The record is a 134-nucleotide RNA from Anguilla anguilla, which matches "Small nucleolar RNA SNORA9" in Rfam. Rfam describes the family as follows. ACA9 is a member of the H/ACA class of snoRNA that guide the sites of modification of uridines to pseudouridines. Pairs were carried over by alignment from the consensus structure, which was predicted with PFOLD. The organism belongs to Anguilla, within Eukaryota. By type it is an H/ACA-box small nucleolar RNA.

RNA sequence: GUGCAGGCCGUUCAGCGAGGCUGGGCCUGCUCUGUGGCCCGUGUCCUUUCCUGUGGUGUCUGCUAGAGAGACCGGGGCGGUUUGAGGCUUUGCUGUCAGUCUCCGCGGCAAGGUUAUAUAAACCUCGGACAACG
Numbered sequence: 001g002u003g004c005a006g007g008c009c010g011u012u013c014a015g016c017g018a019g020g021c022u023g024g025g026c027c028u029g030c031u032c033u034g035u036g037g038c039c040c041g042u043g044u045c046c047u048u049u050c051c052u053g054u055g056g057u058g059u060c061u062g063c064u065a066g067a068g069a070g071a072c073c074g075g076g077g078c079g080g081u082u083u084g085a086g087g088c089u090u091u092g093c094u095g096u097c098a099g100u101c102u103c104c105g106c107g108g109c110a111a112g113g114u115u116a117u118a119u120a121a122a123c124c125u126c127g128g129a130c131a132a133c134g
Stems, first nucleotide, its partner, number of pairs: 003063006018047003023040005073127005088113006095106002